[Rfam]
RNA sequence: GUCACCGCGAGGUGGGGUCCGAAGGAAGCUGUAAGCAAAGUGCCGGCCUGACGAACAGGAAUCGCAUGAGGCGUCCGCACCUGGGCGAGGGAGCCAUUAAGCCCGAAGCCCGAUAUCACCCGGAAGGUGCUGGCGUAUAUGCGGCGGGUAUAUGGCAUGAAGGUCACGCGUC
Numbered sequence: 001g002u003c004a005c006c007g008c009g010a011g012g013u014g015g016g017g018u019c020c021g022a023a024g025g026a027a028g029c030u031g032u033a034a035g036c037a038a039a040g041u042g043c044c045g046g047c048c049u050g051a052c053g054a055a056c057a058g059g060a061a062u063c064g065c066a067u068g069a070g071g072c073g074u075c076c077g078c079a080c081c082u083g084g085g086c087g088a089g090g091g092a093g094c095c096a097u098u099a100a101g102c103c104c105g106a107a108g109c110c111c112g113a114u115a116u117c118a119c120c121c122g123g124a125a126g127g128u129g130c131u132g133g134c135g136u137a138u139a140u141g142c143g144g145c146g147g148g149u150a151u152a153u154g155g156c157a158u159g160a161a162g163g164u165c166a167c168g169c170g171u172c
Stems, first nucleotide, its partner, number of pairs: 002015005028172001030170003035164002040158006046149005062144005071136003075132001077130005083111004089104003
Rfam assigns this 172-nucleotide RNA from Nitrospirillum viridazoti to the family "Group II catalytic intron D1-D4-3".
A search with the family's covariance model found it, with a score of 135 bits.
Group II introns are found in rRNA, tRNA and mRNA of organelles in fungi, plants and protists, and also in mRNA in bacteria.
The source organism's lineage runs through Bacteria, Pseudomonadati, Azospirillaceae, Nitrospirillum and Nitrospirillum viridazoti.
Rfam 15.1 lists 4,274 matches to the family in 1,585 species.
On this family, see Chu et al., EMBO J 2001: "Control of branch-site choice by a group II intron".